The family of this 183-nucleotide part of an RNA from Chrysochloris asiatica is "Eukaryotic large subunit ribosomal RNA". Its family is annotated with structural constituent of ribosome and ribosome in the Gene Ontology. The organism belongs to Chrysochloris, within Eukaryota. A reference for the family is Yusupov et al. (2001), "Crystal structure of the ribosome at 5.5 A resolution", Science.
[Rfam]
Nucleotides: 183
Base pairs, nucleotide, nucleotide: 006180008178009177010176011175012174014172015171016170017169021048026041027040028039029038030037053060054059075128076127077126078125079124083119130164132161134159135158136157137156141152142151143150144149
Number, partner (000 for none) and nucleotide at each position: 001000g002000a003000g004000u005000c006180u007000a008178a009177c010176a011175c012174g013000u014172g015171c016170g017169c018000g019000a020000c021048u022000u023000a024000a025000g026041g027040g028039c029038u030037c031000g032000c033000g034000u035000g036000a037030g038029a039028g040027c041026c042000g043000c044000g045000g046000u047000u048021a049000u050000g051000c052000a053060a054059u055000g056000a057000a058000g059054g060053u061000g062000a063000a064000a065000g066000c067000u068000a069000g070000g071000c072000c073000g074000a075128g076127g077126u078125g079124g080000g081000a082000u083119c084000c085000c086000g087000a088000g089000g090000c091000c092000u093000u094000g095000c096000c097000a098000g099000u100000c101000c102000g103000c104000c105000a106000a107000u108000g109000g110000c111000g112000c113000a114000u115000c116000a117000c118000c119083g120000c121000g122000c123000a124079c125078c126077a127076c128075c129000g130164g131000c132161g133000g134159g135158u136157c137156u138000c139000g140000c141152c142151u143150g144149g145000c146000u147000c148000u149144c150143c151142g152141g153000g154000g155000g156137a157136g158135g159134u160000g161132u162000a163000a164130c165000a166000u167000g168000a169017g170016c171015g172014c173000u174012c175011g176010u177009g178008u179000g180006g181000a182000g183000a